The record is an 80-nucleotide RNA sequence from Pedobacter psychrophilus, which matches "Fluoride riboswitch aptamer (crcB RNA motif)" in Rfam.
A search with the family's covariance model found it, with a score of 38 bits.
NCBI's taxonomy places the organism under Bacteria, Pseudomonadati, Bacteroidota, Sphingobacteriia, Pedobacter.

[Rfam]
RNA sequence: AUCAAAAAAGGUGAUGGUGUACCACCUAUUUAAACCGCCCUCAAGUAUAUUGUUUGAGGUAUGAUGACACCUACUUAUAA
Numbered sequence: 001a002u003c004a005a006a007a008a009a010g011g012u013g014a015u016g017g018u019g020u021a022c023c024a025c026c027u028a029u030u031u032a033a034a035c036c037g038c039c040c041u042c043a044a045g046u047a048u049a050u051u052g053u054u055u056g057a058g059g060u061a062u063g064a065u066g067a068c069a070c071c072u073a074c075u076u077a078u079a080a
Stems, first nucleotide, its partner, number of pairs: 010026004016071005039059009